[Rfam]
RNA: Pseudomonas sRNA P26
Organism: Xenorhabdus bovienii
RNA sequence: AGUUUUAAGUUCGCAGCCUGACUUUAAAGGCUGAUGGCUGGCGAUUAAAAAUCGCCAGCCU
Numbered sequence: 001a002g003u004u005u006u007a008a009g010u011u012c013g014c015a016g017c018c019u020g021a022c023u024u025u026a027a028a029g030g031c032u033g034a035u036g037g038c039u040g041g042c043g044a045u046u047a048a049a050a051a052u053c054g055c056c057a058g059c060c061u
Stems, first nucleotide, its partner, number of pairs: 014033005036060010
Dot-bracket structure: .............(((((..........)))))..((((((((((.....)))))))))).